RNA: MIR535 microRNA precursor family
Organism: Theobroma umbraticum
RNA sequence: GAUAUCAUAUGACAACGAUAGAGAGCACGCUUGUACACAUCCGUGUCCUUCCAAGAAUGCCAACAAGCGUGCUCUCUCUCGUUGUCAAUUGAUA
Numbered sequence: 001g002a003u004a005u006c007a008u009a010u011g012a013c014a015a016c017g018a019u020a021g022a023g024a025g026c027a028c029g030c031u032u033g034u035a036c037a038c039a040u041c042c043g044u045g046u047c048c049u050u051c052c053a054a055g056a057a058u059g060c061c062a063a064c065a066a067g068c069g070u071g072c073u074c075u076c077u078c079u080c081g082u083u084g085u086c087a088a089u090u091g092a093u094a
Base pairs, nucleotide, nucleotide: 010087011086012085013084014083016081017080020077021076023074025072026071027070028069029068030067031066032065033064034063